[Rfam]
RNA sequence: CAUUCGAUGAUGAUCUAUUAUUCUAUUUUCUGACAUCUCUAAUGAACCGUUGUGAUUCAAAACAGUUAUAAUUAUUUACUGAAGUU
Dot-bracket structure: .((......................................((((....))))..............................)).

Rfam assigns this 86-nucleotide RNA sequence from Drosophila kikkawai to the family "Small nucleolar RNA Me28S-Gm3255". The organism belongs to Sophophora, within Eukaryota. Rfam links the family to the GO terms nucleolus and RNA processing. It scores 79 bits against the family's covariance model.